[Rfam]
RNA sequence: GGUUUUUCAAAUUUUUUUUUUUUUUUUUUUUUUACGAAACCGACCAACUUUGGUCGGUAAAACAACCGACCAAAAAACCGACCAAAGUUGGUCGGUUUCGUAAAAAAAAAAAAAAAAAAAUUUGAAAAACCGACCAACUUUGGUCGGUUUUUUAAU
Dot-bracket structure: ......((((.((((((((((((((.((((...........((((......))))((........................................))..)))).)))))))))))))).)))).((((((((((....))))))))))......
RNA: Phenylalanine leader peptide